[Rfam]
Nucleotides: 121
Base pairs, nucleotide, nucleotide: 003039004038005037006036007035008034016031017030018029019028020027045076046075047074048073049072052069053068054067055066056065057064058063086116087115088114089113090112091111092110093109094108095107096106097105098104099103
Number, partner (000 for none) and nucleotide at each position: 001000a002000g003039a004038u005037c006036u007035u008034u009000u010000a011000a012000u013000g014000a015000a016031a017030a018029g019028u020027c021000c022000a023000g024000a025000g026000a027020g028019g029018c030017u031016u032000a033000a034008a035007a036006g037005g038004g039003u040000g041000u042000a043000a044000g045076g046075c047074a048073a049072a050000c051000a052069a053068a054067g055066g056065u057064a058063u059000u060000u061000c062000u063058a064057u065056a066055c067054c068053u069052u070000c071000a072049u073048u074047u075046g076045c077000u078000c079000u080000a081000c082000c083000u084000u085000c086116a087115a088114a089113c090112a091111c092110c093109c094108u095107g096106a097105u098104u099103u100000a101000g102000u103099a104098a105097a106096u107095c108094a109093g110092g111091g112090u113089g114088u115087u116086u117000u118000u119000c120000u121000a